[Rfam]
RNA sequence: UGGGAGGAUGAUACACAACUAGGGCUAGACCUGCUCUAAUUGUCACAUAUUCUCCCUAUAGUAAGUUUGCCUGUUGAUAACCGUGACGAACUGAGAGAAAUCGUAACGGACAGAUACGAGGCACACAGUG
Numbered sequence: 001u002g003g004g005a006g007g008a009u010g011a012u013a014c015a016c017a018a019c020u021a022g023g024g025c026u027a028g029a030c031c032u033g034c035u036c037u038a039a040u041u042g043u044c045a046c047a048u049a050u051u052c053u054c055c056c057u058a059u060a061g062u063a064a065g066u067u068u069g070c071c072u073g074u075u076g077a078u079a080a081c082c083g084u085g086a087c088g089a090a091c092u093g094a095g096a097g098a099a100a101u102c103g104u105a106a107c108g109g110a111c112a113g114a115u116a117c118g119a120g121g122c123a124c125a126c127a128g129u130g
Stems, first nucleotide, its partner, number of pairs: 002056006015043004022036004068123005081109003086104004
Source information: This 130-nucleotide sequence from Nothoprocta ornata belongs to the Rfam family "Small Cajal body specific RNA 8". About the family: scaRNAs are a specific class of small nuclear RNAs which localise to the Cajal bodies and guide the modification of RNA polymerase II transcribed spliceosomal RNAs U1, U2, U4, U5 and U12. U92 belong to the H/ACA box class of guide RNAs as it has the predicted hairpin-hinge-hairpin-tail structure, conserved H/ACA-box motifs and is found associated with GAR1. The organism belongs to Nothoprocta, within Eukaryota. For this family Rfam cites "Cajal body-specific small nuclear RNAs: a novel class of 2'-O-methylation and pseudouridylation guide RNAs" (Darzacq et al., EMBO J, 2002).